Small nucleolar RNA SNORD42: a 64-nucleotide RNA from Aquarana catesbeiana. Rfam 15.1 lists 848 matches to the family in 572 species. The base pairs follow the family's consensus structure, which was predicted with PFOLD. snoRNA U42 is found in intron 3 of the ribosomal protein L23a (RPL23a) gene in humans and is also present in mice. The family's RNA type in Rfam is C/D-box small nucleolar RNA. The literature on the family includes a 2002 paper in Mol Cell Biol by Galardi et al., "Purified box C/D snoRNPs are able to reproduce site-specific 2'-O-methylation of target RNA in vitro".
RNA sequence: GUGCAAAUGAUGUAAACUUUAUUCUCUGAAUACACUGAUGUGAUAAAAGGAACCACUGAUGCAC
Numbered sequence: 001g002u003g004c005a006a007a008u009g010a011u012g013u014a015a016a017c018u019u020u021a022u023u024c025u026c027u028g029a030a031u032a033c034a035c036u037g038a039u040g041u042g043a044u045a046a047a048a049g050g051a052a053c054c055a056c057u058g059a060u061g062c063a064c
Stems, first nucleotide, its partner, number of pairs: 001064005